Shown here is an 87-nucleotide sequence from Streptomyces candidus, a member of the family "nrdJ RNA". NCBI's taxonomy places the organism under Bacteria, Bacillati, Kitasatosporales, Streptomycetaceae, Streptomyces. The base pairs follow the family's consensus structure, which is taken from published work. By type it is a small RNA. A search with the family's covariance model found it, with a score of 72 bits.

RNA sequence: ACCUGUCACGGAUGACGCGCUGUGCGCGACUGCCGGGACAUCAGACACACAACGUGCCCUGGGAAGAACUGGGCACUUCUGGGCGUU
Numbered sequence: 001a002c003c004u005g006u007c008a009c010g011g012a013u014g015a016c017g018c019g020c021u022g023u024g025c026g027c028g029a030c031u032g033c034c035g036g037g038a039c040a041u042c043a044g045a046c047a048c049a050c051a052a053c054g055u056g057c058c059c060u061g062g063g064a065a066g067a068a069c070u071g072g073g074c075a076c077u078u079c080u081g082g083g084c085g086u087u
Stems, first nucleotide, its partner, number of pairs: 004040004009035003014030001016028003054076006061069001